A member of the RNA family "MIR7504 microRNA precursor family" from Gossypium hirsutum, 123 nucleotides long.
RNA sequence: AAUAGGAGAAUGAAAGAUCAGAUUUUUCCUUCUGAUUUUUAGUAUUUUUAGUUGGAUUUGAAUUUUUUUAGGAGAAAAAGGCUGAAAAUCAGGAGAAAAAAUUUGAUUUCUCAUUCUCCUAUU
Numbered sequence: 001a002a003u004a005g006g007a008g009a010a011u012g013a014a015a016g017a018u019c020a021g022a023u024u025u026u027u028c029c030u031u032c033u034g035a036u037u038u039u040u041a042g043u044a045u046u047u048u049u050a051g052u053u054g055g056a057u058u059u060g061a062a063u064u065u066u067u068u069u070a071g072g073a074g075a076a077a078a079a080g081g082c083u084g085a086a087a088a089u090c091a092g093g094a095g096a097a098a099a100a101a102u103u104u105g106a107u108u109u110c111u112c113a114u115u116c117u118c119c120u121a122u123u
Base pairs, nucleotide, nucleotide: 001123002122003121004120005119006118007117008116009115010114011113012112013111015109016108017107018106019105020104021103022102023101024100025099026098027097029095030094031093032092033091034090035089036088037087038086039085041083042082045079046078047077048076

Taxonomically the source falls in Gossypium (Eukaryota, Euphyllophyta, Magnoliopsida, Malvales). A search with the family's covariance model found it, with a score of 96 bits. Rfam links the family to the GO terms miRNA-mediated post-transcriptional gene silencing and RISC complex.